[Rfam]
RNA: DUF3800-IV RNA
RNA sequence: CCCGAGCGCUUGAUGCCUGCCAGGGAAAGCCCGCGGUGCUGCCACCGCACUCCUUAAGUGGAUCGGCCCCUGGAGGCUUCAAGAGUUCGGG
Number, nucleotide and partner (000 for none) at each position: 001c091002c090003c089004g088005a087006g086007c085008g000009c083010u082011u081012g080013a079014u000015g077016c076017c075018u074019g000020c073021c072022a071023g070024g069025g068026a000027a000028a000029g067030c066031c065032c000033g048034c047035g046036g045037u044038g043039c000040u000041g000042c000043c038044a037045c036046c035047g034048c033049a000050c000051u062052c061053c060054u000055u000056a000057a000058g000059u000060g053061g052062a051063u000064c000065g031066g030067c029068c025069c024070c023071u022072g021073g020074a018075g017076g016077c015078u000079u013080c012081a011082a010083g009084a000085g007086u006087u005088c004089g003090g002091g001